[Rfam]
RNA: Small nucleolar RNA SNORD113/SNORD114 family
Organism: Mesocricetus auratus
RNA sequence: UGGAUCGAUGAUGACCGUGGGUAGCUUAUGAGUCGGACCGUGACUACAAAUCUGAGUCUGAGGUCCAC
Number, nucleotide and partner (000 for none) at each position: 001u000002g066003g065004a064005u063006c062007g000008a000009u000010g000011a000012u000013g000014a000015c000016c000017g000018u000019g000020g000021g000022u000023a000024g000025c000026u000027u000028a000029u000030g000031a000032g000033u000034c000035g000036g000037a000038c000039c000040g000041u000042g000043a000044c000045u000046a000047c000048a000049a000050a000051u000052c000053u000054g000055a000056g000057u000058c000059u000060g000061a000062g006063g005064u004065c003066c002067a000068c000